Annotation:
The record is a 132-nucleotide RNA sequence from Crystallibacter crystallopoietes, which matches "SAM (S-adenosyl methionine) riboswitch aptamer" in Rfam.
RNA sequence: CUUCACGAGAUGUGGCCCGCCUCCGCUAUAGCGGACGCGAUGCUCCGACAGGGCCACGCACCAACCCCAGCCUCACGGGUGGUUCGGAUGACGAAGCGGUCCGCUGUCAACCGGCGCGGGCAAGAGCGGCCC
Dot-bracket structure: ((((....(.((((((....((...........................)).)))))))(((..(((.........))).))).........))))..((((((.(((....)))))))))...........
Numbered sequence: 001c002u003u004c005a006c007g008a009g010a011u012g013u014g015g016c017c018c019g020c021c022u023c024c025g026c027u028a029u030a031g032c033g034g035a036c037g038c039g040a041u042g043c044u045c046c047g048a049c050a051g052g053g054c055c056a057c058g059c060a061c062c063a064a065c066c067c068c069a070g071c072c073u074c075a076c077g078g079g080u081g082g083u084u085c086g087g088a089u090g091a092c093g094a095a096g097c098g099g100u101c102c103g104c105u106g107u108c109a110a111c112c113g114g115c116g117c118g119g120g121c122a123a124g125a126g127c128g129g130c131c132c
Stems, first nucleotide, its partner, number of pairs: 001096004009059001011058006021051002060083003065079003099121006106115003
It scores 52 bits against the family's covariance model. Pairs were carried over by alignment from the consensus structure, which is taken from published work. The source organism's lineage runs through Bacteria, Micrococcales, Micrococcaceae, Crystallibacter and Crystallibacter crystallopoietes.